A member of the RNA family "Small nucleolar RNA SNORA51" from Castor canadensis, 136 nucleotides long. Rfam describes the family as follows. ACA51 is a member of the H/ACA class of snoRNA that guide the sites of modification of uridines to pseudouridines. Rfam links the family to the GO terms nucleolus and RNA processing. Rfam classes the family as an H/ACA-box small nucleolar RNA.

RNA sequence: GGCCUCUUGGUACUUAUUACCAAGAGUAUGUGUUCUUACACUGACUGUACAGAAAGAGGAGGGAAAGUAAACUCAUCCCACAUACUCCUGAGCCCAGGGCUUGAGCCUGGUCUGCAUUGUGAGUGGGAAGACAUGG
Numbered sequence: 001g002g003c004c005u006c007u008u009g010g011u012a013c014u015u016a017u018u019a020c021c022a023a024g025a026g027u028a029u030g031u032g033u034u035c036u037u038a039c040a041c042u043g044a045c046u047g048u049a050c051a052g053a054a055a056g057a058g059g060a061g062g063g064a065a066a067g068u069a070a071a072c073u074c075a076u077c078c079c080a081c082a083u084a085c086u087c088c089u090g091a092g093c094c095c096a097g098g099g100c101u102u103g104a105g106c107c108u109g110g111u112c113u114g115c116a117u118u119g120u121g122a123g124u125g126g127g128a129a130g131a132c133a134u135g136g
Stems, first nucleotide, its partner, number of pairs: 003062006025046002030041004076128006091113002094110005